RNA: Streptomyces-metK RNA
Organism: Streptomyces sp. MMG1121
RNA sequence: GCGAGACGGUGGCCCACGAAACGAGCGCGACCGAUAAACUGUUCAGGUCGGCACCGGGCGCAGCCCUCGUGCCGACAGCAAAUGAUCAGCCAGCAGCCGCUGCAACCACAGGGAG
Number, nucleotide and partner (000 for none) at each position: 001g000002c000003g000004a000005g000006a000007c000008g000009g000010u000011g000012g000013c000014c000015c000016a000017c000018g000019a000020a000021a000022c000023g000024a000025g000026c000027g000028c000029g000030a000031c000032c000033g000034a000035u000036a000037a000038a000039c000040u000041g000042u000043u000044c000045a000046g000047g076048u075049c074050g073051g072052c000053a000054c071055c069056g068057g067058g066059c000060g000061c000062a000063g000064c000065c000066c058067u057068c056069g055070u000071g054072c051073c050074g049075a048076c047077a000078g000079c000080a000081a000082a000083u000084g000085a000086u000087c000088a000089g000090c000091c102092a101093g100094c099095a000096g000097c000098c000099g094100c093101u092102g091103c000104a000105a000106c000107c000108a000109c000110a000111g000112g000113g000114a000115g000